Notes
mir-278 microRNA precursor family: a 75-nucleotide RNA from Atta cephalotes. The family's consensus secondary structure was predicted with RNAalifold. Its family is annotated with RISC complex and miRNA-mediated post-transcriptional gene silencing in the Gene Ontology. Taxonomically the source falls in Atta (Eukaryota, Mandibulata, Aculeata, Formicidae).

[Rfam]
RNA sequence: GAUGCGUCCGGAUGAAGUCUUCAUCGGCCAUAAACAUGUUAGACAAGGUCGGUGGGACUUUCGUCCGUUUGCAGG
Numbered sequence: 001g002a003u004g005c006g007u008c009c010g011g012a013u014g015a016a017g018u019c020u021u022c023a024u025c026g027g028c029c030a031u032a033a034a035c036a037u038g039u040u041a042g043a044c045a046a047g048g049u050c051g052g053u054g055g056g057a058c059u060u061u062c063g064u065c066c067g068u069u070u071g072c073a074g075g
Stems, first nucleotide, its partner, number of pairs: 003073004009067007016059005022054002025051005